[Rfam]
Nucleotides: 119
Base pairs, nucleotide, nucleotide: 003077004076005075006074008067009066010065011064012063013062014061015060016059017058018057027053028052029051030050031049032048033047034046101119102118103117104116105115
Number, partner (000 for none) and nucleotide at each position: 001000a002000g003077c004076u005075g006074c007000g008067u009066g010065g011064c012063g013062a014061g015060c016059a017058c018057a019000g020000a021000g022000c023000g024000a025000a026000c027053u028052a029051u030050u031049c032048u033047u034046u035000c036000g037000c038000c039000u040000u041000u042000u043000a044000c045000u046034a047033a048032a049031g050030a051029a052028u053027a054000c055000c056000g057018u058017g059016u060015g061014c062013u063012c064011g065010u066009c067008a068000c069000a070000u071000a072000u073000a074006g075005c076004a077003g078000c079000a080000u081000a082000c083000g084000c085000u086000a087000a088000u089000u090000u091000u092000u093000g094000u095000a096000g097000g098000g099000u100000u101119u102118c103117c104116u105115u106000c107000u108000c109000g110000u111000a112000a113000g114000a115105g116104g117103g118102g119101g
U5 spliceosomal RNA: a 119-nucleotide RNA sequence from Ensete ventricosum. Its family is annotated with U5 snRNP and spliceosomal tri-snRNP complex assembly in the Gene Ontology. The source organism's lineage runs through Eukaryota, Euphyllophyta, Spermatophyta, Mesangiospermae and Ensete.